RNA sequence: GGAAUAUUUAUGAAUGGGAAAGUAGGUUUGACAGAUAGUCUCAGCGAGCCGGGUUUGUGUGAGCCGGUACGGAUGUCAAAUUGAAACGGGCCCAGGAAAUGGUUUGCUGAACUCUUUAGUAGGCAGGCCCGGUCUGUGACCGUUAUUAAACAGAGGGGUUAAAUCAUGCAUUUAACACUUAGAGUGGUACCGCGGGAAUGGAAUAGCUCUCUCUCUU
Numbered sequence: 001g002g003a004a005u006a007u008u009u010a011u012g013a014a015u016g017g018g019a020a021a022g023u024a025g026g027u028u029u030g031a032c033a034g035a036u037a038g039u040c041u042c043a044g045c046g047a048g049c050c051g052g053g054u055u056u057g058u059g060u061g062a063g064c065c066g067g068u069a070c071g072g073a074u075g076u077c078a079a080a081u082u083g084a085a086a087c088g089g090g091c092c093c094a095g096g097a098a099a100u101g102g103u104u105u106g107c108u109g110a111a112c113u114c115u116u117u118a119g120u121a122g123g124c125a126g127g128c129c130c131g132g133u134c135u136g137u138g139a140c141c142g143u144u145a146u147u148a149a150a151c152a153g154a155g156g157g158g159u160u161a162a163a164u165c166a167u168g169c170a171u172u173u174a175a176c177a178c179u180u181a182g183a184g185u186g187g188u189a190c191c192g193c194g195g196g197a198a199u200g201g202a203a204u205a206g207c208u209c210u211c212u213c214u215c216u217u
Stems, first nucleotide, its partner, number of pairs: 007099002015094004025082006038070002048068005102128007130142003158176007181216004192212001194211003